[Rfam]
RNA sequence: UCGCGGGUGACUGCGAAUCUGAAGGAAGCCCGAGGCAAAAUGCUGGCCUGACGAACAGGAGGCGGAUGAGGCGGCACAGCGGGGUAAGGCGGCCGCAAUCGUCAAAGCCCAAUACUUGCACGGAACGCUGUGAAGUUCUGACAGGCACAAGCAGGAAGGUCGUGCGA
Numbered sequence: 001u002c003g004c005g006g007g008u009g010a011c012u013g014c015g016a017a018u019c020u021g022a023a024g025g026a027a028g029c030c031c032g033a034g035g036c037a038a039a040a041u042g043c044u045g046g047c048c049u050g051a052c053g054a055a056c057a058g059g060a061g062g063c064g065g066a067u068g069a070g071g072c073g074g075c076a077c078a079g080c081g082g083g084g085u086a087a088g089g090c091g092g093c094c095g096c097a098a099u100c101g102u103c104a105a106a107g108c109c110c111a112a113u114a115c116u117u118g119c120a121c122g123g124a125a126c127g128c129u130g131u132g133a134a135g136u137u138c139u140g141a142c143a144g145g146c147a148c149a150a151g152c153a154g155g156a157a158g159g160u161c162g163u164g165c166g167a
Base pairs, nucleotide, nucleotide: 001016002015003014004013005012006011029166031164032163035160036159041153042152043151044150046146047145048144049143050142063140064139065138066137071136072135075132076131077130078129079128080127081126082110083109084108085107088103089102090101091100
RNA: Group II catalytic intron D1-D4-3
Organism: Pseudomonas coronafaciens